[Rfam]
RNA sequence: UUAGCUGCUGAUUGUCCAAACGCAAUUCUUGUGUCAACUCAAAGUACUCCCCAAGAAUUGUGUAUGGACAUCUGUUGCUGG
Numbered sequence: 001u002u003a004g005c006u007g008c009u010g011a012u013u014g015u016c017c018a019a020a021c022g023c024a025a026u027u028c029u030u031g032u033g034u035c036a037a038c039u040c041a042a043a044g045u046a047c048u049c050c051c052c053a054a055g056a057a058u059u060g061u062g063u064a065u066g067g068a069c070a071u072c073u074g075u076u077g078c079u080g081g
Stems, first nucleotide, its partner, number of pairs: 002080004007075001010072003014069005021062011
This 81-nucleotide RNA sequence from Neogobius melanostomus belongs to the Rfam family "mir-219 microRNA precursor family". The source organism's lineage runs through Eukaryota, Eurypterygia, Acanthomorphata, Euacanthomorphacea and Neogobius. The base pairs follow the family's consensus structure, which was predicted with RNAalifold.